[Rfam]
RNA sequence: AUAUUCGUAAAAGGGAUAACUCAUAUAAUUGUGAUAAUAUGGUUCACAAGUAUCUACCAGAUUACCGUAAAUAAUUUGCCUAUGAGUAAGACUAUAUUAAUU
Numbered sequence: 001a002u003a004u005u006c007g008u009a010a011a012a013g014g015g016a017u018a019a020c021u022c023a024u025a026u027a028a029u030u031g032u033g034a035u036a037a038u039a040u041g042g043u044u045c046a047c048a049a050g051u052a053u054c055u056a057c058c059a060g061a062u063u064a065c066c067g068u069a070a071a072u073a074a075u076u077u078g079c080c081u082a083u084g085a086g087u088a089a090g091a092c093u094a095u096a097u098u099a100a101u102u
Base pairs, nucleotide, nucleotide: 019087020086021085022084023083024082025081029049030048031047032046033045034044058078059077060076061075062074063073064072
RNA: Purine riboswitch aptamer
Organism: Clostridium taeniosporum